[Rfam]
RNA: Eukaryotic large subunit ribosomal RNA, nucleotides 1205 to 1720
RNA sequence: CCCUCCGAAGUUUCCCUCAGGAUAGCUGGCGCUUAUACCAGUCUCAUCCGGUAAAGCGAAUGAUUAGAGGCCUUGGGGCCGAAACGACCUCAACCUAUUCUCAAACUUUAAAUGGGUGAGAAGUUAGGCUUGCUUGAUUUGAAGUUCUAACAAUGGAUGGUGAGUGCCAAGUGGGCCACUCUUGGUAAGCAGGACUGGCGCUGUGGGAUGAACCAAACGUUGAGUUAAGGCGCCCGAAUCGACGCUCAUGAGAUCCCAUAAAAGGCGUUGGUUGCUUAAGACAGCAGGACGGUGGCCAUGGAAGUCGGAAUCCGCUAAGGAGUGUGUAACAACUCACCUGCCGAAGCAACUAGCCCUGAAAAUGGAUGGCGCUGAAGCGUCGUGCCCAUACUCAACCGUUGAGACAAAGAGGUAUUAUUUAUAAUAUCCGCGAGGUCUCAACGAGUAGGAGGGUCGUGGUGGUGUGCGUAGAAGGGUUUGGGCGUGGGCCUACCUGGAGCCGCCAUCAGUGCAGAU
Numbered sequence: 001c002c003c004u005c006c007g008a009a010g011u012u013u014c015c016c017u018c019a020g021g022a023u024a025g026c027u028g029g030c031g032c033u034u035a036u037a038c039c040a041g042u043c044u045c046a047u048c049c050g051g052u053a054a055a056g057c058g059a060a061u062g063a064u065u066a067g068a069g070g071c072c073u074u075g076g077g078g079c080c081g082a083a084a085c086g087a088c089c090u091c092a093a094c095c096u097a098u099u100c101u102c103a104a105a106c107u108u109u110a111a112a113u114g115g116g117u118g119a120g121a122a123g124u125u126a127g128g129c130u131u132g133c134u135u136g137a138u139u140u141g142a143a144g145u146u147c148u149a150a151c152a153a154u155g156g157a158u159g160g161u162g163a164g165u166g167c168c169a170a171g172u173g174g175g176c177c178a179c180u181c182u183u184g185g186u187a188a189g190c191a192g193g194a195c196u197g198g199c200g201c202u203g204u205g206g207g208a209u210g211a212a213c214c215a216a217a218c219g220u221u222g223a224g225u226u227a228a229g230g231c232g233c234c235c236g237a238a239u240c241g242a243c244g245c246u247c248a249u250g251a252g253a254u255c256c257c258a259u260a261a262a263a264g265g266c267g268u269u270g271g272u273u274g275c276u277u278a279a280g281a282c283a284g285c286a287g288g289a290c291g292g293u294g295g296c297c298a299u300g301g302a303a304g305u306c307g308g309a310a311u312c313c314g315c316u317a318a319g320g321a322g323u324g325u326g327u328a329a330c331a332a333c334u335c336a337c338c339u340g341c342c343g344a345a346g347c348a349a350c351u352a353g354c355c356c357u358g359a360a361a362a363u364g365g366a367u368g369g370c371g372c373u374g375a376a377g378c379g380u381c382g383u384g385c386c387c388a389u390a391c392u393c394a395a396c397c398g399u400u401g402a403g404a405c406a407a408a409g410a411g412g413u414a415u416u417a418u419u420u421a422u423a424a425u426a427u428c429c430g431c432g433a434g435g436u437c438u439c440a441a442c443g444a445g446u447a448g449g450a451g452g453g454u455c456g457u458g459g460u461g462g463u464g465u466g467c468g469u470a471g472a473a474g475g476g477u478u479u480g481g482g483c484g485u486g487g488g489c490c491u492a493c494c495u496g497g498a499g500c501c502g503c504c505a506u507c508a509g510u511g512c513a514g515a516u
Base pairs, nucleotide, nucleotide: 001453002452003451004450005449006448011024013022014021015020027169028168029167030166031165032164033163042121043120044119045118046117047116048115049114054109055107056106061103062102063101066098068096069095070094073093074092075091076090077089078088080086123151124150125149126148127146128145129144130143131142175199176198177197178196180194181193182192183191184190204215205214206213219396220395221394222393223392225390229386230385231384238383240382243379244378245377263357264356265355267354268353269352270351271350272349273348274347275346276345284341285340286339287338288337290314291313292312296308297307315319320335324333325332397443398442399441400440401439402438403437404436405435455511457508458507459506460505461504462503463502464501466500467499474495475494481490482489483488